[Rfam]
RNA sequence: UUGCUGUGAUAUUUGGUUUCGCUCACUGCUGACUUGCAGUGAAGACAUUUUCUUAGCUUUUUGAGCAG
Numbered sequence: 001u002u003g004c005u006g007u008g009a010u011a012u013u014u015g016g017u018u019u020c021g022c023u024c025a026c027u028g029c030u031g032a033c034u035u036g037c038a039g040u041g042a043a044g045a046c047a048u049u050u051u052c053u054u055a056g057c058u059u060u061u062u063g064a065g066c067a068g
Base pairs, nucleotide, nucleotide: 001068002067003066004065
RNA: Small nucleolar RNA SNORD53/SNORD92
Organism: Pelodiscus sinensis